Shown here is a 68-nucleotide sequence from Turnix velox, a member of the family "Small nucleolar RNA SNORD58".
Gene Ontology terms of the family: RNA processing and nucleolus.
It is annotated as a C/D-box small nucleolar RNA.
For this family Rfam cites "Purified box C/D snoRNPs are able to reproduce site-specific 2'-O-methylation of target RNA in vitro" (Galardi et al., Mol Cell Biol, 2002).
Rfam's curators write: snoRNA U58 is found in introns 1, 3 and 6 of the ribosomal protein RPL17 gene in humans.
The organism belongs to Turnix, within Eukaryota.

[Rfam]
RNA sequence: UGGCAGUGAUGACAAUCUUAGGACACCUUUGGAGCUACUAUGAAAAAAACAUUAAUUUUCUGAGCCAU
Numbered sequence: 001u002g003g004c005a006g007u008g009a010u011g012a013c014a015a016u017c018u019u020a021g022g023a024c025a026c027c028u029u030u031g032g033a034g035c036u037a038c039u040a041u042g043a044a045a046a047a048a049a050c051a052u053u054a055a056u057u058u059u060c061u062g063a064g065c066c067a068u
Stems, first nucleotide, its partner, number of pairs: 001067004